[Rfam]
RNA sequence: UGUCUCCUCCAACUCUUCUUGAAUUGGAUUCGCCCGCAACCGAAAGGUCUGCGGGCUUUUUUC
Numbered sequence: 001u002g003u004c005u006c007c008u009c010c011a012a013c014u015c016u017u018c019u020u021g022a023a024u025u026g027g028a029u030u031c032g033c034c035c036g037c038a039a040c041c042g043a044a045a046g047g048u049c050u051g052c053g054g055g056c057u058u059u060u061u062u063c
Stems, first nucleotide, its partner, number of pairs: 008028005013021001032056007
About this RNA
The record is a 63-nucleotide sequence from Noviherbaspirillum sp. Root189, which matches "Betaproteobacteria toxic small RNA" in Rfam. A reference for the family is Kimelman et al. (2012), "A vast collection of microbial genes that are toxic to bacteria", Genome Res. The family has 51 seed sequences and 951 matches in Rfam 15.1. Overexpression in amino aid rich medium attenuates growth, suggesting role in repressing amino acid intake and metabolism.